The record is a 280-nucleotide RNA, which matches "HIF-1 alpha IRES" in Rfam. Rfam's curators write: This family represents the hypoxia-inducible factor 1-alpha internal ribosome entry site. HIF-1a is a subunit of the HIF-1 transcription factor, which induces transcription of several genes involved in the cellular response to hypoxia. The HIF-1a IRES allows translation to be maintained under hypoxic cell conditions that inhibit cap-dependent translation. It is one of the family's seed sequences. On this family, see Lang et al., Mol Biol Cell 2002: "Hypoxia-inducible factor-1alpha mRNA contains an internal ribosome entry site that allows efficient translation during normoxia and hypoxia".
[Rfam]
RNA sequence: CUCGUAUGAGGGGACGGGAGGACUGUCCUUGCUGCCGUGGUGGGCAGUGGCUGGCCAGGCCCCGACAAACGAGCCCGAGGAGCUCCUGGGAGCCCGAGCCGGAGCCGGGCGAGCGCAGCUUGCAGCUCCCGCCUCGCCGUCCCGGGGGGGCGUCUCGCCUCGCACCCCGCCUCUGGACUUGCCCCUUUCUCUGGGCGUGCGGACCGAGCCAGCGCUUAGGCCGUGAGCGAGCCCGGGGGCCGCCGGCGGGGGAAGGCACCGCGGGCACUGAUUCGCCAUG
Numbered sequence: 001c002u003c004g005u006a007u008g009a010g011g012g013g014a015c016g017g018g019a020g021g022a023c024u025g026u027c028c029u030u031g032c033u034g035c036c037g038u039g040g041u042g043g044g045c046a047g048u049g050g051c052u053g054g055c056c057a058g059g060c061c062c063c064g065a066c067a068a069a070c071g072a073g074c075c076c077g078a079g080g081a082g083c084u085c086c087u088g089g090g091a092g093c094c095c096g097a098g099c100c101g102g103a104g105c106c107g108g109g110c111g112a113g114c115g116c117a118g119c120u121u122g123c124a125g126c127u128c129c130c131g132c133c134u135c136g137c138c139g140u141c142c143c144g145g146g147g148g149g150g151c152g153u154c155u156c157g158c159c160u161c162g163c164a165c166c167c168c169g170c171c172u173c174u175g176g177a178c179u180u181g182c183c184c185c186u187u188u189c190u191c192u193g194g195g196c197g198u199g200c201g202g203a204c205c206g207a208g209c210c211a212g213c214g215c216u217u218a219g220g221c222c223g224u225g226a227g228c229g230a231g232c233c234c235g236g237g238g239g240c241c242g243c244c245g246g247c248g249g250g251g252g253a254a255g256g257c258a259c260c261g262c263g264g265g266c267a268c269u270g271a272u273u274c275g276c277c278a279u280g
Stems, first nucleotide, its partner, number of pairs: 001013003016032001018030004034060003082153002086149001126148005179212003183208001185206001190203003222246001225244001227243003